[Rfam]
The family of this 46-nucleotide sequence is "Acido-Lenti-1 RNA". It is annotated as a small RNA.
RNA sequence: CCUAGGGCUUACGCCCUAGGCUAUUAAAGUACGCACCUACAGCGCU
Dot-bracket structure: ((((((((....))))))))............((.(.....).)).
Numbered sequence: 001c002c003u004a005g006g007g008c009u010u011a012c013g014c015c016c017u018a019g020g021c022u023a024u025u026a027a028a029g030u031a032c033g034c035a036c037c038u039a040c041a042g043c044g045c046u
Stems, first nucleotide, its partner, number of pairs: 001020008033045002036042001